[Rfam]
A member of the RNA family "Small nucleolar RNA U54" from Aegilops tauschii, 82 nucleotides long.
A search with the family's covariance model found it, with a score of 66 bits.
The family has 21 seed sequences and 614 matches in Rfam 15.1.
Its Rfam clan is "U54 clan".
U54 is a C/D box small nucleolar RNA, which acts as a methylation guide for 18S ribosomal RNA in plants.
It is annotated as a C/D-box small nucleolar RNA.
Rfam links the family to the GO terms nucleolus and RNA processing.
Lineage of the source: Eukaryota > Viridiplantae > Tracheophyta > Aegilops > Aegilops tauschii.
RNA sequence: UGCUCAAUGAUUAAGCCAUGUAGAUUCAUGGUGAUAUACGCUAUUCUGAGUCUUUACGAUGUCAUCACAUGUUAUGAGAGCA
Numbered sequence: 001u002g003c004u005c006a007a008u009g010a011u012u013a014a015g016c017c018a019u020g021u022a023g024a025u026u027c028a029u030g031g032u033g034a035u036a037u038a039c040g041c042u043a044u045u046c047u048g049a050g051u052c053u054u055u056a057c058g059a060u061g062u063c064a065u066c067a068c069a070u071g072u073u074a075u076g077a078g079a080g081c082a
Stems, first nucleotide, its partner, number of pairs: 001082005